[Rfam]
RNA: Pseudomonadales-1 RNA
Organism: Acinetobacter lwoffii
RNA sequence: CCUGCUGGAGUGCUGACCAGUGGAACAUGCCUUUGAGUAAACUUCCUUCGGGAAUCUAGACUAGGGAGUAGCGUCCCGACCUAAAGAGGAUUGAAAGCAAGUAAAGCAGACCGUGCAUGUUAGGUGUGUGUGAUUGUGAGUAGCGUCUGGCCCUGCGAAAAGGGCU
Numbered sequence: 001c002c003u004g005c006u007g008g009a010g011u012g013c014u015g016a017c018c019a020g021u022g023g024a025a026c027a028u029g030c031c032u033u034u035g036a037g038u039a040a041a042c043u044u045c046c047u048u049c050g051g052g053a054a055u056c057u058a059g060a061c062u063a064g065g066g067a068g069u070a071g072c073g074u075c076c077c078g079a080c081c082u083a084a085a086g087a088g089g090a091u092u093g094a095a096a097g098c099a100a101g102u103a104a105a106g107c108a109g110a111c112c113g114u115g116c117a118u119g120u121u122a123g124g125u126g127u128g129u130g131u132g133a134u135u136g137u138g139a140g141u142a143g144c145g146u147c148u149g150g151c152c153c154u155g156c157g158a159a160a161a162g163g164g165c166u
Stems, first nucleotide, its partner, number of pairs: 002023007012072004026119005062079001064077004092145002097137004102132001104131001106129003110125003149166005